RNA sequence: AGGUCUUCAAUAAGUAUUUGUUGAAAGAAUAACCGAACCAACAAGUCUUUAUUUGAGCACUUGUUAUG
Numbered sequence: 001a002g003g004u005c006u007u008c009a010a011u012a013a014g015u016a017u018u019u020g021u022u023g024a025a026a027g028a029a030u031a032a033c034c035g036a037a038c039c040a041a042c043a044a045g046u047c048u049u050u051a052u053u054u055g056a057g058c059a060c061u062u063g064u065u066a067u068g
Stems, first nucleotide, its partner, number of pairs: 001062004006057005011051002013048002016046008
The family of this 68-nucleotide sequence from Heterocephalus glaber is "mir-1264 microRNA precursor family". Lineage of the source: Eukaryota > Craniata > Euarchontoglires > Hystricomorpha > Heterocephalus. The base pairs follow the family's consensus structure, which was predicted with RNAalifold.